[Rfam]
Annotation: The record is a 52-nucleotide RNA sequence from Limnothrix sp. P13C2, which matches "Nitrogen stress-induced RNA 1" in Rfam. A reference for the family is Ionescu et al. (2010), "Heterocyst-specific transcription of NsiR1, a non-coding RNA encoded in a tandem array of direct repeats in cyanobacteria", J Mol Biol. The source organism's lineage runs through Bacteria, Cyanophyceae, Pseudanabaenales, Pseudanabaenaceae and Limnothrix.

RNA sequence: AGGUAGAUGCACCCUGACGAUGUUCCCCCGGCCCCGGCUGGGGGAUUUUUGU
Numbered sequence: 001a002g003g004u005a006g007a008u009g010c011a012c013c014c015u016g017a018c019g020a021u022g023u024u025c026c027c028c029c030g031g032c033c034c035c036g037g038c039u040g041g042g043g044g045a046u047u048u049u050u051g052u
Stems, first nucleotide, its partner, number of pairs: 002013003025044008